The record is a 64-nucleotide RNA sequence from Pleuronectes platessa, which matches "Selenocysteine insertion sequence 1" in Rfam. The match comes from Rfam's covariance-model search (40 bits). Gene Ontology term of the family: selenocysteine incorporation. The organism belongs to Pleuronectes, within Eukaryota.
RNA sequence: GCCAGAUAAUGAUGACCUGCACUAAAACCCAGAGCUGGGGAGUGCAGGCCUGAUGUCCCCUGGC
Numbered sequence: 001g002c003c004a005g006a007u008a009a010u011g012a013u014g015a016c017c018u019g020c021a022c023u024a025a026a027a028c029c030c031a032g033a034g035c036u037g038g039g040g041a042g043u044g045c046a047g048g049c050c051u052g053a054u055g056u057c058c059c060c061u062g063g064c
Stems, first nucleotide, its partner, number of pairs: 001064005014050001016048008028038002